[Rfam]
RNA: FMN riboswitch aptamer (RFN element)
Nucleotides: 173
Base pairs, nucleotide, nucleotide: 003171005169006168007167008166009165010164017029018028019027032153033152034142035141036075037074038073039072070140071139078099079098080097103138104137105136106135107134144156145155146154
Number, partner (000 for none) and nucleotide at each position: 001000a002000u003171g004000g005169c006168u007167u008166u009165u010164c011000g012000g013000g014000g015000g016000c017029g018028g019027g020000u021000g022000g023000a024000a025000u026000u027019c028018c029017c030000g031000c032153a033152c034142c035141g036075g037074c038073g039072g040000u041000g042000a043000u044000c045000c046000c047000g048000c049000g050000g051000g052000c053000a054000c055000u056000g057000u058000g059000u060000c061000c062000c063000g064000c065000g066000g067000a068000a069000a070140g071139c072039c073038c074037g075036c076000g077000a078099a079098c080097c081000u082000c083000a084000c085000g086000g087000a088000g089000a090000g091000a092000u093000c094000c095000g096000g097080g098079g099078u100000u101000g102000a103138g104137c105136c106135g107134g108000u109000g110000a111000a112000g113000g114000c115000u116000g117000g118000u119000c120000u121000c122000g123000c124000c125000a126000g127000c128000c129000g130000u131000a132000g133000u134107c135106c136105g137104g138103c139071g140070c141035c142034g143000a144156c145155g146154g147000u148000c149000a150000g151000a152033g153032u154146c155145c156144g157000g158000a159000u160000g161000g162000g163000a164010g165009a166008a167007a168006g169005g170000g171003u172000g173000c